[Rfam]
RNA sequence: GUGAGUGGAAGCUCAUUGUAGAGGUCACAUGCAGAGUGCUCGUCACUCCUCCAAUCACCUCGGGGAAGGUCUGAGUCAAGAGCCAAUCGUUACCCUUGCAGGGUAUCACCUGAUUCGGGUGAGCGAGUGAACAGAAAAAUUGGGCCAAUGUGAGCAGUCUCAGCAGGAGAAGCUAGAUGGUGCUGUUUCACGCGCCUCUAGUGGAUGUGCUGCUCGCUGGCUUGGAAUCACUCGCGGCUGGCGAAUGAGUCCGAUGUAUGAGGUGGAGCACCGCUCCAGAACCCAAUUCAGACUACUCUCCACUCAC
Numbered sequence: 001g002u003g004a005g006u007g008g009a010a011g012c013u014c015a016u017u018g019u020a021g022a023g024g025u026c027a028c029a030u031g032c033a034g035a036g037u038g039c040u041c042g043u044c045a046c047u048c049c050u051c052c053a054a055u056c057a058c059c060u061c062g063g064g065g066a067a068g069g070u071c072u073g074a075g076u077c078a079a080g081a082g083c084c085a086a087u088c089g090u091u092a093c094c095c096u097u098g099c100a101g102g103g104u105a106u107c108a109c110c111u112g113a114u115u116c117g118g119g120u121g122a123g124c125g126a127g128u129g130a131a132c133a134g135a136a137a138a139a140u141u142g143g144g145c146c147a148a149u150g151u152g153a154g155c156a157g158u159c160u161c162a163g164c165a166g167g168a169g170a171a172g173c174u175a176g177a178u179g180g181u182g183c184u185g186u187u188u189c190a191c192g193c194g195c196c197u198c199u200a201g202u203g204g205a206u207g208u209g210c211u212g213c214u215c216g217c218u219g220g221c222u223u224g225g226a227a228u229c230a231c232u233c234g235c236g237g238c239u240g241g242c243g244a245a246u247g248a249g250u251c252c253g254a255u256g257u258a259u260g261a262g263g264u265g266g267a268g269c270a271c272c273g274c275u276c277c278a279g280a281a282c283c284c285a286a287u288u289c290a291g292a293c294u295a296c297u298c299u300c301c302a303c304u305c306a307c
Base pairs, nucleotide, nucleotide: 001307002306003305004304007301008300009299012262013261014260015259016258021061022060023059024058034048035047036046037045038044071291072290073289074288075287081239082238083237084236091105092104093103094102095101106122107121108120109119110118111117123235124234125233126232127231128230129229143221264278265277266276267275268274269273
The family of this 307-nucleotide sequence from Oryzias melastigma is "Nuclear RNase P". The family's consensus secondary structure is taken from published work. The literature on the family includes a 2002 paper in Annu Rev Biochem by Xiao et al., "Eukaryotic Ribonuclease P: A Plurality of Ribonucleoprotein Enzymes". Lineage of the source: Eukaryota > Opisthokonta > Euteleostomi > Eurypterygia > Oryzias.